[Rfam]
RNA sequence: UGGGCAGUAUCCUAGGAACUGCACCUCGAAAGAACGUACAUUCAAUUUUCAAUACUAUUUCUGCCUUGAUCCAUUGUGGACUGGGACAGAGGG
Number, nucleotide and partner (000 for none) at each position: 001u000002g025003g024004g022005c021006a020007g019008u018009a000010u017011c016012c000013u000014a000015g000016g011017a010018a008019c007020u006021g005022c004023a000024c003025c002026u000027c000028g000029a000030a000031a000032g000033a000034a000035c000036g000037u000038a000039c000040a000041u000042u000043c000044a000045a000046u000047u000048u000049u000050c000051a000052a000053u000054a000055c000056u000057a000058u000059u000060u000061c089062u088063g087064c085065c084066u083067u000068g081069a000070u080071c079072c078073a000074u000075u000076g000077u000078g072079g071080a070081c068082u000083g066084g065085g064086a000087c063088a062089g061090a000091g000092g000093g000

pan motif: a 93-nucleotide RNA sequence from Rossellomorea vietnamensis.
NCBI's taxonomy places the organism under Bacteria, Bacillota, Bacilli, Bacillaceae, Rossellomorea.